[Rfam]
Nucleotides: 069
Stems, first nucleotide, its partner, number of pairs: 003022002006019005043068003051060003
Number, partner (000 for none) and nucleotide at each position: 001000a002000a003022u004021u005000c006019u007018g008017u009016u010015c011000g012000u013000a014000a015010g016009a017008a018007c019006a020000a021004a022003a023000g024000a025000g026000a027000a028000g029000a030000g031000a032000u033000c034000u035000a036000u037000u038000c039000u040000a041000u042000a043068c044067c045066c046000g047000a048000u049000a050000a051060g052059u053058a054000c055000c056000a057000a058053u059052a060051c061000g062000c063000a064000a065000u066045g067044g068043g069000a
About this RNA:
Rfam assigns this 69-nucleotide RNA from Musa balbisiana to the family "Plastid-clpP 5UTR RNA". The organism belongs to Musa, within Eukaryota. Pairs were carried over by alignment from the consensus structure, which was predicted with LocARNA. From the family's description: Plastid clpP is a non-coding RNA (ncRNA) recognised in plastids. It was found in the prime untranslated region (5UTR) of a protease complex subunit (clpP) in plastids, suggesting a posible cis-regulatory function. By type it is a cis-regulatory element.